[Rfam]
RNA: Small nucleolar RNA U19
Organism: Nicotiana attenuata
RNA sequence: AUUUGGCUUAGUUAGGAGGCAGAAAUUAAACUCUGUGAACCCGAAAGAUUACAUCUUUUGGAACUCACCUAUACACCAAAGCCUUUUGAGUGGACUCUUUGUUAUUUUUCAUCAAUUGUCCUUCAAGCAGCUUUGGACAUUU
Number, nucleotide and partner (000 for none) at each position: 001a000002u000003u000004u021005g020006g000007c018008u017009u016010a000011g000012u000013u000014a000015g000016g009017a008018g007019g000020c005021a004022g000023a000024a000025a000026u000027u000028a000029a000030a000031c000032u000033c000034u067035g066036u000037g064038a000039a000040c000041c000042c060043g000044a000045a059046a058047g057048a056049u000050u000051a000052c000053a000054u000055c000056u048057u047058u046059u045060g042061g000062a000063a000064c037065u000066c035067a034068c000069c000070u000071a000072u000073a000074c000075a000076c136077c135078a134079a133080a132081g131082c130083c000084u000085u127086u126087u125088g124089a000090g123091u000092g121093g120094a119095c118096u000097c000098u115099u000100u000101g000102u000103u000104a000105u000106u000107u000108u000109u000110c000111a000112u000113c000114a000115a098116u000117u000118g095119u094120c093121c092122u000123u090124c088125a087126a086127g085128c000129a000130g082131c081132u080133u079134u078135g077136g076137a000138c000139a000140u000141u000142u000